[Rfam]
A member of the RNA family "Vault RNA" from Myripristis murdjan, 97 nucleotides long. Rfam classes the family as a non-coding RNA gene. A search with the family's covariance model found it, with a score of 56 bits. A reference for the family is Stadler et al. (2009), "Evolution of Vault RNAs", Mol Biol Evol.
RNA sequence: GCAUCGGUUUAGCUCAUCGGUUACUUCUUACCCUGAAGUUUCCAUUCUGCGGACCGCGGGCUGCAGGGUUCGACCGUGGGCGCUGCCCGAUGUUUUA
Numbered sequence: 001g002c003a004u005c006g007g008u009u010u011a012g013c014u015c016a017u018c019g020g021u022u023a024c025u026u027c028u029u030a031c032c033c034u035g036a037a038g039u040u041u042c043c044a045u046u047c048u049g050c051g052g053a054c055c056g057c058g059g060g061c062u063g064c065a066g067g068g069u070u071c072g073a074c075c076g077u078g079g080g081c082g083c084u085g086c087c088c089g090a091u092g093u094u095u096u097a
Base pairs, nucleotide, nucleotide: 002092003091004090005089006088007087012081013080014079015078018076019075020074026073027072